[Rfam]
Nucleotides: 278
Base pairs, nucleotide, nucleotide: 002014003013004012018276019275022272023271024270027267028266030265031262032261033260040256041255042254047250049248050247051246052245053244054243055242061070062069063068074238075237076236077234078233079232080231081230082228083227084226086221087220088219089218090217091215092214093213095210096209097208098207100205101204102203103202105146107144108143109142110141111139112138113137115133116132117131118130119129121128122127147151155201156200157199158198159197160196165194166193167192168191169190174185175184176183
Number, partner (000 for none) and nucleotide at each position: 001000c002014g003013g004012c005000u006000g007000u008000a009000a010000c011000g012004g013003u014002c015000a016000u017000a018276a019275g020000c021000u022272u023271g024270g025000a026000a027267g028266a029000c030265u031262u032261c033260a034000a035000c036000a037000u038000c039000c040256c041255a042254g043000a044000u045000u046000u047250c048000u049248u050247c051246a052245c053244c054243c055242a056000u057000u058000u059000c060000g061070u062069u063068c064000g065000c066000a067000a068063g069062a070061a071000c072000a073000c074238c075237a076236c077234c078233a079232a080231c081230a082228g083227u084226g085000c086221c087220c088219a089218g090217u091215u092214c093213g094000a095210a096209c097208a098207u099000g100205g101204c102203g103202g104000u105146g106000g107144u108143u109142c110141c111139c112138c113137a114000c115133u116132c117131g118130u119129g120000c121128a122127g123000g124000u125000a126000a127122c128121u129119c130118a131117c132116g133115a134000u135000g136000c137113u138112g139111g140000u141110g142109g143108g144107a145000c146105c147151u148000u149000a150000a151147g152000c153000a154000a155201u156200g157199a158198a159197g160196a161000a162000c163000a164000c165194u166193u167192c168191u169190u170000g171000a172000g173000g174185g175184a176183g177000g178000c179000u180000u181000c182000a183176c184175u185174c186000u187000g188000c189000a190169g191168a192167g193166a194165g195000a196160u197159c198158u199157u200156c201155a202103c203102c204101g205100u206000g207098g208097u209096g210095u211000g212000g213093c214092g215091g216000c217090a218089u219088u220087g221086g222000a223000u224000u225000a226084c227083a228082c229000u230081u231080g232079u233078u234077g235000c236076g237075u238074g239000g240000u241000u242055u243054g244053g245052g246051u247050g248049g249000u250047g251000u252000g253000c254042c255041u256040g257000g258000g259000u260033u261032g262031a263000g264000c265030g266028u267027c268000a269000a270024c271023c272022a273000u274000a275019u276018u277000u278000u
A member of the RNA family "Fungal signal recognition particle RNA" from Hyaloscypha variabilis, 278 nucleotides long. The base pairs follow the family's consensus structure, which is taken from published work. Its Rfam clan is "SRP clan". The family has 50 seed sequences and 748 matches in Rfam 15.1. Taxonomically the source falls in Hyaloscypha variabilis (Eukaryota, sordariomyceta, Leotiomycetes, Hyaloscypha). A reference for the family is Rosenblad et al. (2009), "Kinship in the SRP RNA family", RNA Biol.